RNA sequence: CUUGAUCGACCCCAGCCACAACGGCCGCUCACGACCCUGCCCAUACGUCGCCAGCAGAGCCUGCGCUUC
Numbered sequence: 001c002u003u004g005a006u007c008g009a010c011c012c013c014a015g016c017c018a019c020a021a022c023g024g025c026c027g028c029u030c031a032c033g034a035c036c037c038u039g040c041c042c043a044u045a046c047g048u049c050g051c052c053a054g055c056a057g058a059g060c061c062u063g064c065g066c067u068u069c
Stems, first nucleotide, its partner, number of pairs: 015025003028065001030063001032059001037054003041050001043048001